The family of this 218-nucleotide sequence from Gossypium davidsonii is "Plant small nucleolar RNA U3".
Rfam's curators write: Small nucleolar RNAs (snoRNAs) are involved in the processing and modification of rRNA in the nucleolus.
Gene Ontology terms of the family: nucleolus and RNA processing.
Lineage of the source: Eukaryota > Viridiplantae > Mesangiospermae > malvids > Gossypium.
The family's RNA type in Rfam is C/D-box small nucleolar RNA.
It scores 147 bits against the family's covariance model.
RNA sequence: AGGAUCUUACUUGAACAGGAUCUGUUCUAUAGGCUCGUACCUCUGUGUCCGUAAGUUCAAAGGAGAUAGGAUUCAAAGUCUGGUUGAUGAACCACGACUGUGUGAUCUGAGCGUGAUUACUGGUCUGGUGAUAUCCUUGCUGGUUUCAUUCGACCGAAGAAGAUCGUUCUCAGCUUGCCUUGUGCGGCUGGGAAGGCCUUGCAGUUGUCUGAUCGACU
Numbered sequence: 001a002g003g004a005u006c007u008u009a010c011u012u013g014a015a016c017a018g019g020a021u022c023u024g025u026u027c028u029a030u031a032g033g034c035u036c037g038u039a040c041c042u043c044u045g046u047g048u049c050c051g052u053a054a055g056u057u058c059a060a061a062g063g064a065g066a067u068a069g070g071a072u073u074c075a076a077a078g079u080c081u082g083g084u085u086g087a088u089g090a091a092c093c094a095c096g097a098c099u100g101u102g103u104g105a106u107c108u109g110a111g112c113g114u115g116a117u118u119a120c121u122g123g124u125c126u127g128g129u130g131a132u133a134u135c136c137u138u139g140c141u142g143g144u145u146u147c148a149u150u151c152g153a154c155c156g157a158a159g160a161a162g163a164u165c166g167u168u169c170u171c172a173g174c175u176u177g178c179c180u181u182g183u184g185c186g187g188c189u190g191g192g193a194a195g196g197c198c199u200u201g202c203a204g205u206u207g208u209c210u211g212a213u214c215g216a217c218u
Base pairs, nucleotide, nucleotide: 001038003035005033006032007031013027014026015025016024017023018022043069044068045067046066048064049063050062052060078217079216080215082213097205098204099203100202101201102200104198106196107195108194110168111167112166113165121156122155123154124153125152127150128149129148130147131146133144134143135142170191171190172189173188174187176186177185178184
Dot-bracket structure: (.(.(((.....((((((...))))))...))).)..)....((((.(((.(.......).))).))))........(((.(..............((((((.(.(((.((((.......(((((.(((((.(((......))).))))).)))))........)))).(((((.(((.....))))))))..))).).)))))).......).))).